[Rfam]
RNA sequence: GGGCCGGGAGAUCCUCCUUGGGAAGAGGGUCAAGAAUUGGUCUUCAUUAUCGUCUCAACUUUGCCCACCACUGGGUCCCCGACGGUGUGUGUG
Numbered sequence: 001g002g003g004c005c006g007g008g009a010g011a012u013c014c015u016c017c018u019u020g021g022g023a024a025g026a027g028g029g030u031c032a033a034g035a036a037u038u039g040g041u042c043u044u045c046a047u048u049a050u051c052g053u054c055u056c057a058a059c060u061u062u063g064c065c066c067a068c069c070a071c072u073g074g075g076u077c078c079c080c081g082a083c084g085g086u087g088u089g090u091g092u093g
Stems, first nucleotide, its partner, number of pairs: 001043005010031007064093001066091003069087005
Rfam assigns this 93-nucleotide RNA sequence to the family "Rhodo-rpoB RNA". The family's consensus secondary structure is taken from published work. The sequence is in the family's curated seed alignment.